The record is an 80-nucleotide sequence from Effusibacillus lacus, which matches "ZMP/ZTP riboswitch aptamer (pfl RNA motif)" in Rfam. NCBI's taxonomy places the organism under Bacteria, Bacillota, Bacilli, Alicyclobacillaceae, Effusibacillus. The base pairs follow the family's consensus structure, which is taken from published work. The match comes from Rfam's covariance-model search (64 bits).
[Rfam]
Nucleotides: 080
Stems, first nucleotide, its partner, number of pairs: 005049008015039002017068005024035004058074004
Number, partner (000 for none) and nucleotide at each position: 001000a002000g003000c004000a005049g006048g007047u008046u009045g010044c011043a012042u013000g014000a015039c016038u017068g018067g019066c020065g021064g022000a023000a024035g025034u026033g027032g028000g029000u030000a031000a032027c033026c034025a035024c036000a037000a038016g039015g040000g041000a042012g043011u044010g045009c046008a047007a048006c049005u050000g051000a052000u053000g054000a055000u056000a057000u058074g059073g060072c061071c062000g063000a064021c065020c066019g067018c068017c069000u070000g071061g072060g073059c074058c075000c076000c077000u078000u079000g080000c